[Rfam]
RNA sequence: UCCUGGUGCCCUUCAUUCCACCGGAAUCUGUCGAUGCAAAGGCGGAUUUGGGUGAAAUGAAGCCCCUCAGAGA
Dot-bracket structure: ..........((((((..(((..(((.(((............))).)))..)))..))))))...........
About this RNA:
The family of this 73-nucleotide RNA sequence from Leucopsar rothschildi is "mir-205 microRNA precursor family". NCBI's taxonomy places the organism under Eukaryota, Dipnotetrapodomorpha, Aves, Australaves, Leucopsar. The family has 44 seed sequences and 1,154 matches in Rfam 15.1. The literature on the family includes a 2003 paper in Science by Lim et al., "Vertebrate microRNA genes". The family's consensus secondary structure was predicted with RNAalifold.